[Rfam]
RNA sequence: AAGAUAGGUGAAGAAGAACACAUCUCCUACAUAUUGACAGGCUUGGGAAGUGAGUAUAACUCAGUCAUGGUCUCAGUUAAAUCAAGGAUAGAGCCAUAUUCCCUCAGGGAAAUACAUUCACUUCUUCUCAGCCUAGA
Numbered sequence: 001a002a003g004a005u006a007g008g009u010g011a012a013g014a015a016g017a018a019c020a021c022a023u024c025u026c027c028u029a030c031a032u033a034u035u036g037a038c039a040g041g042c043u044u045g046g047g048a049a050g051u052g053a054g055u056a057u058a059a060c061u062c063a064g065u066c067a068u069g070g071u072c073u074c075a076g077u078u079a080a081a082u083c084a085a086g087g088a089u090a091g092a093g094c095c096a097u098a099u100u101c102c103c104u105c106a107g108g109g110a111a112a113u114a115c116a117u118u119c120a121c122u123u124c125u126u127c128u129c130a131g132c133c134u135a136g137a
Base pairs, nucleotide, nucleotide: 005135006134007133008132089107091105092104093103